[Rfam]
RNA sequence: UCUUCAUUUCUCACACACUCUCACCCGCCAGAGUGGUGAGAGAGUGUGUAAAAUGAAGAGA
Numbered sequence: 001u002c003u004u005c006a007u008u009u010c011u012c013a014c015a016c017a018c019u020c021u022c023a024c025c026c027g028c029c030a031g032a033g034u035g036g037u038g039a040g041a042g043a044g045u046g047u048g049u050a051a052a053a054u055g056a057a058g059a060g061a
Stems, first nucleotide, its partner, number of pairs: 001059007012048005019041004
Shown here is a 61-nucleotide sequence from Pristionchus pacificus, a member of the family "mir-8364 microRNA precursor family". Rfam links the family to the GO terms RISC complex and miRNA-mediated post-transcriptional gene silencing. It scores 72 bits against the family's covariance model. NCBI's taxonomy places the organism under Eukaryota, Bilateria, Rhabditina, Diplogasteroidea, Pristionchus.